[Rfam]
RNA sequence: UUCAGCGCAAGGAAGGGAAGCUUGAGGCUACCUUAGGUGGUGACGACACCUCGCCCCCA
Numbered sequence: 001u002u003c004a005g006c007g008c009a010a011g012g013a014a015g016g017g018a019a020g021c022u023u024g025a026g027g028c029u030a031c032c033u034u035a036g037g038u039g040g041u042g043a044c045g046a047c048a049c050c051u052c053g054c055c056c057c058c059a
Stems, first nucleotide, its partner, number of pairs: 005054003013034004018029001035051005
Dot-bracket structure: ....(((.....((((.(..........).))))(((((.......)))))))).....
RNA: Insect-Specific Flavivirus 3' UTR repeats Ra
Organism: Quang Binh virus